[Rfam]
RNA: mir-574 microRNA precursor family
Organism: Pipistrellus kuhlii
RNA sequence: AGGCCUGAAGAGAGAAGCAGAGUCUGAUCCAUGGCCUCUGUGGCAGCAUUUGAUCAGCACUUGCCUCUCUCUUUCUCUCUC
Numbered sequence: 001a002g003g004c005c006u007g008a009a010g011a012g013a014g015a016a017g018c019a020g021a022g023u024c025u026g027a028u029c030c031a032u033g034g035c036c037u038c039u040g041u042g043g044c045a046g047c048a049u050u051u052g053a054u055c056a057g058c059a060c061u062u063g064c065c066u067c068u069c070u071c072u073u074u075c076u077c078u079c080u081c
Base pairs, nucleotide, nucleotide: 008073009072010071011070012069013068014067015066017064018063019062020061024057025056026055027054028053029052034047035046